[Rfam]
RNA sequence: GAGAAAUGAGGAUAUUACUCUUUGUCUCAGUGUUACAAUGAAGACUUCAGAUCCAACUCUGAUCUCACUCAGAAU
Number, nucleotide and partner (000 for none) at each position: 001g066002a065003g064004a063005a000006a000007u000008g000009a000010g000011g000012a000013u000014a000015u000016u000017a000018c000019u000020c000021u000022u000023u000024g000025u000026c000027u000028c000029a000030g000031u000032g000033u000034u000035a000036c000037a000038a000039u000040g000041a000042a000043g000044a000045c000046u000047u000048c000049a000050g000051a000052u000053c000054c000055a000056a000057c000058u000059c000060u000061g000062a000063u004064c003065u002066c001067a000068c000069u000070c000071a000072g000073a000074a000075u000
Record summary: Small nucleolar RNA SNORD19: a 75-nucleotide RNA from Sphenodon punctatus. On this family, see Huttenhofer et al., EMBO J 2001: "RNomics: an experimental approach that identifies 201 candidates for novel, small, non-messenger RNAs in mouse". Lineage of the source: Eukaryota > Eumetazoa > Vertebrata > Lepidosauria > Sphenodon.